Annotation:
Small nucleolar RNA SNORA63: a 130-nucleotide RNA sequence from Cynoglossus semilaevis. Rfam's curators write: E3 belongs to the H/ACA class of snoRNAs and is involved in the processing of eukaryotic pre-rRNA and has regions of complementarity to 18S rRNA. E3 is encoded in introns in the gene for protein synthesis initiation factor 4AII. Lineage of the source: Eukaryota > Chordata > Eurypterygia > Euacanthomorphacea > Cynoglossus. Gene Ontology terms of the family: nucleolus and RNA processing. A reference for the family is Mishra and Eliceiri (1997), "Three small nucleolar RNAs that are involved in ribosomal RNA precursor processing", Proc Natl Acad Sci U S A. The family's consensus secondary structure was predicted with PFOLD. The family has 8 seed sequences and 1,279 matches in Rfam 15.1.

RNA sequence: AUGCAGGAUAAGUUACAAUGCAGCAGGUGCAGUACUGUAUUGUCGUUCCCCCUGCAAACAGCAUUCUGUUUCCUCGCUAUACCUGUCUGUCAACAUCCUUUGACAGUCAGGGACGUAAGGUUUCAGACAA
Dot-bracket structure: ..(((((.......(((((((((...........))))))))).......)))))..........................((((.((((............)))).))))...................